RNA sequence: GUCGGGGUCGUCGCCAUCGCCCCGCAGCGUGUUGCGCUGGAUACCGAAUUGCCUGGUCGAACGGCCGCCCACACCUUGGCCGAGGUACGGCCGCAAGUCGGCGGUAUCGUGCUCAAGCGCCUCUUCACCGAAGGGGCCGACGUCAAGGCCGGCCAGCCCUUGUAUCAAAUCGA
Numbered sequence: 001g002u003c004g005g006g007g008u009c010g011u012c013g014c015c016a017u018c019g020c021c022c023c024g025c026a027g028c029g030u031g032u033u034g035c036g037c038u039g040g041a042u043a044c045c046g047a048a049u050u051g052c053c054u055g056g057u058c059g060a061a062c063g064g065c066c067g068c069c070c071a072c073a074c075c076u077u078g079g080c081c082g083a084g085g086u087a088c089g090g091c092c093g094c095a096a097g098u099c100g101g102c103g104g105u106a107u108c109g110u111g112c113u114c115a116a117g118c119g120c121c122u123c124u125u126c127a128c129c130g131a132a133g134g135g136g137c138c139g140a141c142g143u144c145a146a147g148g149c150c151g152g153c154c155a156g157c158c159c160u161u162g163u164a165u166c167a168a169a170u171c172g173a
Base pairs, nucleotide, nucleotide: 004053005052007050008047009046010045011043014040015039016038019037020036021034023031024030055150056149057148058147061143062142063141065139067137068136069135070134072133075130078092079091080090081089082088093121097118103113104112105111106110157172160168161167
This 173-nucleotide RNA sequence from Paludibacterium purpuratum belongs to the Rfam family "Burkholderia RNA 14". Its family is annotated with protein binding in the Gene Ontology. Taxonomically the source falls in Paludibacterium (Bacteria, Pseudomonadota, Betaproteobacteria, Chromobacteriaceae). The match comes from Rfam's covariance-model search (62 bits). About the family: Co-purified with Hfq, expression confirmed by Northern blot. Putative functional homologue of PA-SraF. Overlaps coding sequence. A reference for the family is Ramos et al. (2013), "Experimental identification of small non-coding regulatory RNAs in the opportunistic human pathogen Burkholderia cenocepacia J2315", Genomics. The family's consensus secondary structure was predicted with RNAfold.